[Rfam]
RNA sequence: GUGAUCACAAUUUUAGGUUUGAAAAUAACCCUUUCACAAGGGUUAAAAAUUACCAAAAAAAUAGCCUUUUAAUCCAAAAAAUA
Numbered sequence: 001g002u003g004a005u006c007a008c009a010a011u012u013u014u015a016g017g018u019u020u021g022a023a024a025a026u027a028a029c030c031c032u033u034u035c036a037c038a039a040g041g042g043u044u045a046a047a048a049a050u051u052a053c054c055a056a057a058a059a060a061a062u063a064g065c066c067u068u069u070u071a072a073u074c075c076a077a078a079a080a081a082u083a
Stems, first nucleotide, its partner, number of pairs: 012078003016074002020071005026045006050064003

Notes: The record is an 83-nucleotide RNA from Kingdonia uniflora, which matches "rpsL sRNA" in Rfam. The source organism's lineage runs through Eukaryota, Streptophyta, Streptophytina, Ranunculales and Kingdonia. The literature on the family includes a 2009 paper in BMC Genomics by Meyer et al., "Identification of candidate structured RNAs in the marine organism 'Candidatus Pelagibacter ubique'". The match comes from Rfam's covariance-model search (40 bits).